[Rfam]
This 114-nucleotide sequence from Actinomadura logoneensis belongs to the Rfam family "TPP riboswitch aptamer (THI element)". The source organism's lineage runs through Bacteria, Actinomycetes, Streptosporangiales, Thermomonosporaceae and Actinomadura. It scores 55 bits against the family's covariance model.
RNA sequence: CCGGAAGAGCGCGGGAGCCCGGCCGGAACCGGGCUGAGAGGGCGGCUGACGGGCCGCCGACCGCCCGAACCUGAUCCGGGUCAUGCCGGCGAAGGGAGCCCCCCGUGAAGAUCG
Numbered sequence: 001c002c003g004g005a006a007g008a009g010c011g012c013g014g015g016a017g018c019c020c021g022g023c024c025g026g027a028a029c030c031g032g033g034c035u036g037a038g039a040g041g042g043c044g045g046c047u048g049a050c051g052g053g054c055c056g057c058c059g060a061c062c063g064c065c066c067g068a069a070c071c072u073g074a075u076c077c078g079g080g081u082c083a084u085g086c087c088g089g090c091g092a093a094g095g096g097a098g099c100c101c102c103c104c105g106u107g108a109a110g111a112u113c114g
Stems, first nucleotide, its partner, number of pairs: 007101001009099002011064004017034005041058007070095003076089004